[Rfam]
RNA sequence: ACUGGGCGUCGUGGCGGGCGCUUGUGAGCCAGUUUCUAGGCAGUAGAUGAUCGAGGAUGAUGUGAGGUUAGGAGUCCUGUACGUUGAGUGUGUCACGACGACUGGGUGUCCGAGCCAAGUGAUACGUCACUAGAGGUUUCAUUCUGUAGAGAAUGAUCUCUCGGGUGGACAAGGAGAAGCGUAUGGCCCAGGUCCGAAAGGAAGCAAGCAGAAGUUUCCGCGUGUUACAGUGGCCGGAUAACACCUAUGAGUUUCCACCAUCGUAUAGCCUAGCCAAUACCUUCAGACCGAUCAUUGU
Numbered sequence: 001a002c003u004g005g006g007c008g009u010c011g012u013g014g015c016g017g018g019c020g021c022u023u024g025u026g027a028g029c030c031a032g033u034u035u036c037u038a039g040g041c042a043g044u045a046g047a048u049g050a051u052c053g054a055g056g057a058u059g060a061u062g063u064g065a066g067g068u069u070a071g072g073a074g075u076c077c078u079g080u081a082c083g084u085u086g087a088g089u090g091u092g093u094c095a096c097g098a099c100g101a102c103u104g105g106g107u108g109u110c111c112g113a114g115c116c117a118a119g120u121g122a123u124a125c126g127u128c129a130c131u132a133g134a135g136g137u138u139u140c141a142u143u144c145u146g147u148a149g150a151g152a153a154u155g156a157u158c159u160c161u162c163g164g165g166u167g168g169a170c171a172a173g174g175a176g177a178a179g180c181g182u183a184u185g186g187c188c189c190a191g192g193u194c195c196g197a198a199a200g201g202a203a204g205c206a207a208g209c210a211g212a213a214g215u216u217u218c219c220g221c222g223u224g225u226u227a228c229a230g231u232g233g234c235c236g237g238a239u240a241a242c243a244c245c246u247a248u249g250a251g252u253u254u255c256c257a258c259c260a261u262c263g264u265a266u267a268g269c270c271u272a273g274c275c276a277a278u279a280c281c282u283u284c285a286g287a288c289c290g291a292u293c294a295u296u297g298u
Stems, first nucleotide, its partner, number of pairs: 001044003004023007028041003046296008058285003062281001066275007077268007088258003092255001095252002103247007110237002114234004119228009128167004133162004139156007176218005186209002193202003
Dot-bracket structure: ((((((((((......)))))))....(((........)))))).((((((((....(((.(...(((((((....(((((((....(((.(..((......(((((((((..((((.(((((((((((((.((((..(((((((....)))))))..)))).))))........(((((.....((.....(((....))).....))....))))).)))))))))..)))).))...)))))))...))..))))...)))))))))))))).....).)))...))))))))..

The record is a 298-nucleotide sequence from Auanema sp. JU1783, which matches "Metazoan signal recognition particle RNA" in Rfam. Rfam links the family to the GO terms SRP-dependent cotranslational protein targeting to membrane, signal sequence recognition and signal recognition particle, endoplasmic reticulum targeting. From the family's description: The signal recognition particle (SRP) is a universally conserved ribonucleoprotein. It is involved in the co-translational targeting of proteins to membranes. Rfam classes the family as a non-coding RNA gene. NCBI's taxonomy places the organism under Eukaryota, Eumetazoa, Bilateria, Protostomia, Auanema. It scores 219 bits against the family's covariance model. A reference for the family is Wild et al. (2002), "Towards the structure of the mammalian signal recognition particle", Curr Opin Struct Biol.